[Rfam]
RNA sequence: UCGUUAUUGGAGUAUAUGGGGAUGAAUAUCUGACAUUCAACGACAAGAAUGCGAGUAAAAAAAAAUGGGGGACAAAAUCCCCCAUUUAUUAACU
Numbered sequence: 001u002c003g004u005u006a007u008u009g010g011a012g013u014a015u016a017u018g019g020g021g022a023u024g025a026a027u028a029u030c031u032g033a034c035a036u037u038c039a040a041c042g043a044c045a046a047g048a049a050u051g052c053g054a055g056u057a058a059a060a061a062a063a064a065a066u067g068g069g070g071g072a073c074a075a076a077a078u079c080c081c082c083c084a085u086u087u088a089u090u091a092a093c094u
Stems, first nucleotide, its partner, number of pairs: 008039001011037003017033001019031003063087010
The record is a 94-nucleotide sequence from Ewingella americana, which matches "sraA" in Rfam.
NCBI's taxonomy places the organism under Bacteria, Pseudomonadati, Pseudomonadota, Gammaproteobacteria, Ewingella americana.
It is annotated as a small RNA.
Pairs were carried over by alignment from the consensus structure, which was predicted with RNAalifold.
On this family, see Argaman et al., Curr Biol 2001: "Novel small RNA-encoding genes in the intergenic regions of Escherichia coli".